The record is an 82-nucleotide RNA sequence from Gasterosteus aculeatus, which matches "mir-221 microRNA precursor family" in Rfam.
[Rfam]
RNA sequence: CCCCGCGGGUGCUCAGUAGUCAGUGUAGAUCCUGUGCGGCUGGCAGCAGCUACAUCUGGCUACUGGGUCUCUGCCGGCAGGC
Numbered sequence: 001c002c003c004c005g006c007g008g009g010u011g012c013u014c015a016g017u018a019g020u021c022a023g024u025g026u027a028g029a030u031c032c033u034g035u036g037c038g039g040c041u042g043g044c045a046g047c048a049g050c051u052a053c054a055u056c057u058g059g060c061u062a063c064u065g066g067g068u069c070u071c072u073g074c075c076g077g078c079a080g081g082c
Stems, first nucleotide, its partner, number of pairs: 013066006020059003023055006032049004
The literature on the family includes a 2008 paper in J Virol by Yao et al., "MicroRNA profile of Marek's disease virus-transformed T-cell line MSB-1: predominance of virus-encoded microRNAs".
Rfam 15.1 lists 1,797 matches to the family in 643 species.